[Rfam]
RNA: Bacterial RNase P class A
RNA sequence: CAAGUAAACCAAGCAAUCGCUGCUGAGAAUUUCUCAGGAGAGGAAAGUCCGAGCUCCAUAGAGCAGGGUGCUGGGUAACUCCCAGUAGAGGUGACUCUAAGGAUAGUGCAACAGAGAGAUACCGCCAGAAUCAUCGUAAGAUGAUGAGUUAGUCUUUGACUACUGGCAAGGAUGGAAAGGCGAGGUAAGAGCUCACCAGCGCAUUGGCGACUUUGCGGCUAUGUAAACCCCAUCUGGAGCAAGACCGAAUAGGAAGGUAAAUGGAACUGCUCGUUCUGCCUUCGGGUGCGUCGCUGGAGCCUAUUGGUAACAAUGGGCCUAGAUAGAUGAUUGCUUAAUACAGAACUCGGCUUACAGGUUUGUCUCGCAUA
Numbered sequence: 001c002a003a004g005u006a007a008a009c010c011a012a013g014c015a016a017u018c019g020c021u022g023c024u025g026a027g028a029a030u031u032u033c034u035c036a037g038g039a040g041a042g043g044a045a046a047g048u049c050c051g052a053g054c055u056c057c058a059u060a061g062a063g064c065a066g067g068g069u070g071c072u073g074g075g076u077a078a079c080u081c082c083c084a085g086u087a088g089a090g091g092u093g094a095c096u097c098u099a100a101g102g103a104u105a106g107u108g109c110a111a112c113a114g115a116g117a118g119a120u121a122c123c124g125c126c127a128g129a130a131u132c133a134u135c136g137u138a139a140g141a142u143g144a145u146g147a148g149u150u151a152g153u154c155u156u157u158g159a160c161u162a163c164u165g166g167c168a169a170g171g172a173u174g175g176a177a178a179g180g181c182g183a184g185g186u187a188a189g190a191g192c193u194c195a196c197c198a199g200c201g202c203a204u205u206g207g208c209g210a211c212u213u214u215g216c217g218g219c220u221a222u223g224u225a226a227a228c229c230c231c232a233u234c235u236g237g238a239g240c241a242a243g244a245c246c247g248a249a250u251a252g253g254a255a256g257g258u259a260a261a262u263g264g265a266a267c268u269g270c271u272c273g274u275u276c277u278g279c280c281u282u283c284g285g286g287u288g289c290g291u292c293g294c295u296g297g298a299g300c301c302u303a304u305u306g307g308u309a310a311c312a313a314u315g316g317g318c319c320u321a322g323a324u325a326g327a328u329g330a331u332u333g334c335u336u337a338a339u340a341c342a343g344a345a346c347u348c349g350g351c352u353u354a355c356a357g358g359u360u361u362g363u364c365u366c367g368c369a370u371a
Stems, first nucleotide, its partner, number of pairs: 001367001003365002005362006012335007020040002023037006045353003049350005054239004061272004066235005071085005086100001087098004101230002106228002108224003122171002124167005130161001179197002182194003199219001200217004206211001243292003253283006263277005299318008